[Rfam]
RNA: Small nucleolar RNA ACA64
Organism: Bucco capensis
RNA sequence: AUAGUCUGAAAAUCACUUGGGGUCUUCUGUGGCCCCUGGUGCGAUAACUGUGCCGACAGCAGAGGGAGCAUUAAACUCACUGCCCAUAGUAAAGUGUGGGGAGUGAUACAUAUGUUCCUAUAAUC
Numbered sequence: 001a002u003a004g005u006c007u008g009a010a011a012a013u014c015a016c017u018u019g020g021g022g023u024c025u026u027c028u029g030u031g032g033c034c035c036c037u038g039g040u041g042c043g044a045u046a047a048c049u050g051u052g053c054c055g056a057c058a059g060c061a062g063a064g065g066g067a068g069c070a071u072u073a074a075a076c077u078c079a080c081u082g083c084c085c086a087u088a089g090u091a092a093a094g095u096g097u098g099g100g101g102a103g104u105g106a107u108a109c110a111u112a113u114g115u116u117c118c119u120a121u122a123a124u125c
Stems, first nucleotide, its partner, number of pairs: 006050001008048001010045001014041003021034004065118001067116005077106005085098003